[Rfam]
Overview: Shown here is a 102-nucleotide RNA from Guptibacillus hwajinpoensis, a member of the family "Purine riboswitch aptamer". The base pairs follow the family's consensus structure, which is taken from published work. Rfam's curators write: Riboswitches are metabolite binding domains within certain messenger RNAs that serve as precision sensors for their corresponding targets. For this family Rfam cites "Adenine riboswitches and gene activation by disruption of a transcription terminator" (Mandal and Breaker, Nat Struct Mol Biol, 2004).

RNA sequence: AACCUGAAUAAGAACAUCACUCAUAUAACCGCAAGAAUAUGGCUUGCAAGUUUCUACCGGAUCACCGUAAAUGAUUCGACUAUGAGUGAGCAACCUUCAGUU
Numbered sequence: 001a002a003c004c005u006g007a008a009u010a011a012g013a014a015c016a017u018c019a020c021u022c023a024u025a026u027a028a029c030c031g032c033a034a035g036a037a038u039a040u041g042g043c044u045u046g047c048a049a050g051u052u053u054c055u056a057c058c059g060g061a062u063c064a065c066c067g068u069a070a071a072u073g074a075u076u077c078g079a080c081u082a083u084g085a086g087u088g089a090g091c092a093a094c095c096u097u098c099a100g101u102u
Stems, first nucleotide, its partner, number of pairs: 018088008031047005058078007